[Rfam]
RNA: serC leader
RNA sequence: CGGCGGGAGACCCCUCCCCACCGAGGGGCGCCCAUCUGGAAGGAUGGACUAA
Dot-bracket structure: ..........((((((......))))))...((((((....)))))).....
Numbered sequence: 001c002g003g004c005g006g007g008a009g010a011c012c013c014c015u016c017c018c019c020a021c022c023g024a025g026g027g028g029c030g031c032c033c034a035u036c037u038g039g040a041a042g043g044a045u046g047g048a049c050u051a052a
Stems, first nucleotide, its partner, number of pairs: 011028006032047006